The family of this 59-nucleotide sequence is "Plastid-psbA-3 3UTR RNA". Rfam's curators put it in the seed alignment. The base pairs follow the family's consensus structure, which was predicted with LocARNA. A reference for the family is Richter et al. (2023), "Retrograde signaling in plants: A critical review focusing on the GUN pathway and beyond", Plant Commun. Rfam classes the family as a cis-regulatory element. The family is grouped with related families in Rfam's "Plastid-psbA 3UTR RNA clan".

RNA sequence: AAGGGAGAAAUACCUCCCUCUUGUUCUAUUAAGAGGGAGGUAUUUCUCCUUUUUUUAUU
Numbered sequence: 001a002a003g004g005g006a007g008a009a010a011u012a013c014c015u016c017c018c019u020c021u022u023g024u025u026c027u028a029u030u031a032a033g034a035g036g037g038a039g040g041u042a043u044u045u046c047u048c049c050u051u052u053u054u055u056u057a058u059u
Base pairs, nucleotide, nucleotide: 001052002051003050004049005048006047007046008045009044010043011042012041013040018035019034020033021032022031023030